Shown here is a 202-nucleotide RNA from Camellia sinensis, a member of the family "MIR159 microRNA precursor family". Rfam links the family to the GO terms miRNA-mediated post-transcriptional gene silencing and RISC complex. NCBI's taxonomy places the organism under Eukaryota, Magnoliopsida, Gunneridae, Theaceae, Camellia.

RNA sequence: GAUGAUCUGAGAGAGCUUCCUUCUGUCCACUUAUGGAUGAGAUAAGGGGUCUGAAUUAGCUGCCGACUCAUUCAUUCAACCACUCAGUAGGCAGGGAAUUCAUCGGUAAUUUGGCUACUGUGGUUGCAUGAAUGAUGCGGGAGAUAGUUUCCAUUCCUCUCCCUCUGUGCUUGGACUGAAGGGAGCUCCCUCUUUCUGCUGC
Numbered sequence: 001g002a003u004g005a006u007c008u009g010a011g012a013g014a015g016c017u018u019c020c021u022u023c024u025g026u027c028c029a030c031u032u033a034u035g036g037a038u039g040a041g042a043u044a045a046g047g048g049g050u051c052u053g054a055a056u057u058a059g060c061u062g063c064c065g066a067c068u069c070a071u072u073c074a075u076u077c078a079a080c081c082a083c084u085c086a087g088u089a090g091g092c093a094g095g096g097a098a099u100u101c102a103u104c105g106g107u108a109a110u111u112u113g114g115c116u117a118c119u120g121u122g123g124u125u126g127c128a129u130g131a132a133u134g135a136u137g138c139g140g141g142a143g144a145u146a147g148u149u150u151c152c153a154u155u156c157c158u159c160u161c162c163c164u165c166u167g168u169g170c171u172u173g174g175a176c177u178g179a180a181g182g183g184a185g186c187u188c189c190c191u192c193u194u195u196c197u198g199c200u201g202c
Stems, first nucleotide, its partner, number of pairs: 013188008023178001025176005036165001060143002063140003069134004077126003
Dot-bracket structure: ............((((((((..(.(((((......(.......................((.(((...((((....(((............................................)))....))))...))).)).....................)......))))).)..))))))))..............